[Rfam]
RNA sequence: UGUUACAGUUCCUGCAUUGUACACACUGUGCGUAAAAGUCAAAAGAAAAAGCACAGCGCAUACAAUGUGGAUGCUGUGUUA
Numbered sequence: 001u002g003u004u005a006c007a008g009u010u011c012c013u014g015c016a017u018u019g020u021a022c023a024c025a026c027u028g029u030g031c032g033u034a035a036a037a038g039u040c041a042a043a044a045g046a047a048a049a050a051g052c053a054c055a056g057c058g059c060a061u062a063c064a065a066u067g068u069g070g071a072u073g074c075u076g077u078g079u080u081a
Base pairs, nucleotide, nucleotide: 012070013069015067016066017065018064019063020062021061024058026056027055028054029053030052031051
A member of the RNA family "mir-460 microRNA precursor family" from Cynoglossus semilaevis, 81 nucleotides long. Its family is annotated with RISC complex and miRNA-mediated post-transcriptional gene silencing in the Gene Ontology. The organism belongs to Cynoglossus, within Eukaryota. A reference for the family is Chen et al. (2005), "The developmental miRNA profiles of zebrafish as determined by small RNA cloning", Genes Dev.